The record is a 32-nucleotide sequence, which matches "S4-Flavobacteria ribosomal protein leader" in Rfam. The family's consensus secondary structure is taken from published work. Rfam classes the family as a cis-regulatory leader. The literature on the family includes a 2020 paper in BMC Microbiol by Eckert and Weinberg, "Discovery of 20 novel ribosomal leader candidates in bacteria and archaea".

RNA sequence: GAUUGUCGAAGGAACGACCUUAAUUCACAAUC
Numbered sequence: 001g002a003u004u005g006u007c008g009a010a011g012g013a014a015c016g017a018c019c020u021u022a023a024u025u026c027a028c029a030a031u032c
Stems, first nucleotide, its partner, number of pairs: 001032006008026001009021004